The record is a 125-nucleotide RNA sequence from Streptomyces sp. DSM 40868, which matches "Streptomyces RNA 3920" in Rfam. By type it is a small RNA. Rfam describes the family as follows. Identified by deep sequencing of transcriptome at the end of exponential growth phase. Sequencing size consistent with northern blot size. Streptomyces specific. The base pairs follow the family's consensus structure.
RNA sequence: GAUACGUCCCUGUCGCUACCGUGAUUGGACACUGACGCAGAGUCAACUAGCCUUGUCCGAGCGGUCUUUCCACCCGGGCCGCAGGCGGUCCGAGCCACGAGGGGGGGAGGCUCGGACCGUCCCGG
Numbered sequence: 001g002a003u004a005c006g007u008c009c010c011u012g013u014c015g016c017u018a019c020c021g022u023g024a025u026u027g028g029a030c031a032c033u034g035a036c037g038c039a040g041a042g043u044c045a046a047c048u049a050g051c052c053u054u055g056u057c058c059g060a061g062c063g064g065u066c067u068u069u070c071c072a073c074c075c076g077g078g079c080c081g082c083a084g085g086c087g088g089u090c091c092g093a094g095c096c097a098c099g100a101g102g103g104g105g106g107g108a109g110g111c112u113c114g115g116a117c118c119g120u121c122c123c124g125g
Stems, first nucleotide, its partner, number of pairs: 001014004015051004021032003033045004058076002061073001063071002084121013098106001